[Rfam]
RNA sequence: GAGACACCCCUAAGGAGCAGGACUUGCUUCAGUGGGGCUUUGGUGCUCACUGAUUCUGCCCCUCAGUGUGUCCCU
Numbered sequence: 001g002a003g004a005c006a007c008c009c010c011u012a013a014g015g016a017g018c019a020g021g022a023c024u025u026g027c028u029u030c031a032g033u034g035g036g037g038c039u040u041u042g043g044u045g046c047u048c049a050c051u052g053a054u055u056c057u058g059c060c061c062c063u064c065a066g067u068g069u070g071u072c073c074c075u
Stems, first nucleotide, its partner, number of pairs: 001074001003072005009066001012063001014062002017059003021056002029053008037044002
Shown here is a 75-nucleotide RNA sequence from Myotis myotis, a member of the family "mir-9229 microRNA precursor family".